[Rfam]
RNA sequence: GCCUCUAAUGAUGAUCAAACAAUACUUUCGUUCUUCCGAGAAAUUCCAUGCGGAAAAAUUAUUGGAGACCUGAACUGAAGAGGC
Number, nucleotide and partner (000 for none) at each position: 001g000002c000003c082004u081005c080006u079007a000008a000009u000010g000011a000012u000013g000014a000015u000016c000017a000018a000019a000020c000021a000022a000023u000024a000025c000026u000027u000028u000029c000030g000031u000032u000033c000034u000035u000036c000037c000038g000039a000040g000041a000042a000043a000044u000045u000046c000047c000048a000049u000050g000051c000052g000053g000054a000055a000056a000057a000058a000059u000060u000061a000062u000063u000064g000065g000066a000067g000068a000069c000070c000071u000072g000073a000074a000075c000076u000077g000078a000079a006080g005081a004082g003083g000084c000
Small nucleolar RNA Z159/U59: an 84-nucleotide sequence from Rhododendron williamsianum.
The base pairs follow the family's consensus structure, which was predicted with PFOLD.
Its family is annotated with RNA processing and nucleolus in the Gene Ontology.
It is annotated as a C/D-box small nucleolar RNA.
It scores 66 bits against the family's covariance model.